[Rfam]
RNA: Group II catalytic intron D1-D4-1
Organism: Phormidesmis priestleyi
RNA sequence: CCCCUUUGGAAGUAAUUUCAAGGGUUAAUCGUACAGAAGUCAGCCGAGUCCAUAGUAGUUCGUUUGAGAACGAAGGGA
Number, nucleotide and partner (000 for none) at each position: 001c000002c000003c000004c023005u022006u021007u020008g019009g018010a017011a016012g000013u000014a000015a000016u011017u010018u009019c008020a007021a006022g005023g004024g000025u000026u000027a000028a000029u000030c000031g000032u000033a000034c000035a000036g000037a000038a000039g000040u047041c046042a000043g000044c000045c000046g041047a040048g000049u078050c077051c076052a000053u000054a000055g000056u000057a000058g071059u070060u069061c068062g000063u000064u000065u000066g000067a000068g061069a060070a059071c058072g000073a000074a000075g000076g051077g050078a049